[Rfam]
Description: Shown here is an 82-nucleotide sequence from Phocoena sinus, a member of the family "Small nucleolar RNA SNORD116". By type it is a C/D-box small nucleolar RNA. The literature on the family includes a 2000 paper in Proc Natl Acad Sci U S A by Cavaille et al., "Identification of brain-specific and imprinted small nucleolar RNA genes exhibiting an unusual genomic organization". Gene Ontology terms of the family: nucleolus and RNA processing. The organism belongs to Phocoena, within Eukaryota.
RNA sequence: GGAUCGAUGAUGACUUCAAAAAUGGAUAUUGUUGGAAUCUGAACAAAAUUAGUGACAAAAUCACUGAUGUGAACUGAGGUCC
Numbered sequence: 001g002g003a004u005c006g007a008u009g010a011u012g013a014c015u016u017c018a019a020a021a022a023u024g025g026a027u028a029u030u031g032u033u034g035g036a037a038u039c040u041g042a043a044c045a046a047a048a049u050u051a052g053u054g055a056c057a058a059a060a061u062c063a064c065u066g067a068u069g070u071g072a073a074c075u076g077a078g079g080u081c082c
Stems, first nucleotide, its partner, number of pairs: 001082005027054005032046003